[Rfam]
RNA sequence: CCUAUAGAAAAAAUGUUCCAUGUCAACCUCUUCCACGGUUGCCGUAAUUAAUUUUCUCUUUGGGAA
Numbered sequence: 001c002c003u004a005u006a007g008a009a010a011a012a013a014u015g016u017u018c019c020a021u022g023u024c025a026a027c028c029u030c031u032u033c034c035a036c037g038g039u040u041g042c043c044g045u046a047a048u049u050a051a052u053u054u055u056c057u058c059u060u061u062g063g064g065a066a
Stems, first nucleotide, its partner, number of pairs: 001064004006059002009055002013052002020045003024041005
Dot-bracket structure: ((((.((.((..((.....(((.(((((........))))).))).....)).))..)).))))..
RNA: mir-8196 microRNA precursor family
Organism: Caenorhabditis elegans